[Rfam]
RNA: Small nucleolar RNA SNORA48
Organism: Colobus angolensis
RNA sequence: UGCCUCUUUUUAGUUAAAGAUAAUUUGCUUUUUGGUAGUGCCCAUCUCCUAUCAGUCAGGGACGAAGCAAUCCCUUGUUCAUCCCCAGCUUGGCUUUUGAUCUAUGCCUGGUUCACACCUUGGACACAUGG
Numbered sequence: 001u002g003c004c005u006c007u008u009u010u011u012a013g014u015u016a017a018a019g020a021u022a023a024u025u026u027g028c029u030u031u032u033u034g035g036u037a038g039u040g041c042c043c044a045u046c047u048c049c050u051a052u053c054a055g056u057c058a059g060g061g062a063c064g065a066a067g068c069a070a071u072c073c074c075u076u077g078u079u080c081a082u083c084c085c086c087a088g089c090u091u092g093g094c095u096u097u098u099g100a101u102c103u104a105u106g107c108c109u110g111g112u113u114c115a116c117a118c119c120u121u122g123g124a125c126a127c128a129u130g131g
Stems, first nucleotide, its partner, number of pairs: 001064002004061004010055002013052001018047002023039003076126006092119002098115003102111003
Dot-bracket structure: ((.((((..((.(....((...(((...........)))......))....).))..)))).))...........((((((..........((....(((.(((....))).)))..)).)))))).....